The record is an 87-nucleotide RNA from Zostera marina, which matches "Small nucleolar RNA snoR26" in Rfam. The base pairs follow the family's consensus structure, which was predicted with WAR. Rfam 15.1 lists 611 matches to the family in 220 species. It is annotated as a C/D-box small nucleolar RNA. Rfam links the family to the GO terms nucleolus and RNA processing. On this family, see Brown et al., RNA 2001: "Multiple snoRNA gene clusters from Arabidopsis". The organism belongs to Zostera, within Eukaryota.

[Rfam]
RNA sequence: UCGGCAUCUGUGAUGCUAUCCUAGUUAUCAUCCUUGCACUUUGACUGUGAAUGAAGAAAAUCACGGGGAAGAAAAACUGAGAUGCCU
Numbered sequence: 001u002c003g004g005c006a007u008c009u010g011u012g013a014u015g016c017u018a019u020c021c022u023a024g025u026u027a028u029c030a031u032c033c034u035u036g037c038a039c040u041u042u043g044a045c046u047g048u049g050a051a052u053g054a055a056g057a058a059a060a061u062c063a064c065g066g067g068g069a070a071g072a073a074a075a076a077c078u079g080a081g082a083u084g085c086c087u
Stems, first nucleotide, its partner, number of pairs: 003086006